[Rfam]
RNA sequence: UCAGAUUGAGGUAGUAGGUUGUAUAGUUCAGAAUUACAUCAAUCAUGGAGAAACUGUACAACCUUCUAGCUUUCCCUGA
Numbered sequence: 001u002c003a004g005a006u007u008g009a010g011g012u013a014g015u016a017g018g019u020u021g022u023a024u025a026g027u028u029c030a031g032a033a034u035u036a037c038a039u040c041a042a043u044c045a046u047g048g049a050g051a052a053a054c055u056g057u058a059c060a061a062c063c064u065u066c067u068a069g070c071u072u073u074c075c076c077u078g079a
Base pairs, nucleotide, nucleotide: 001079002078003077004076008072009071010070012068013067014066016064017063018062019061020060021059022058023057024056025055026054027053035041043050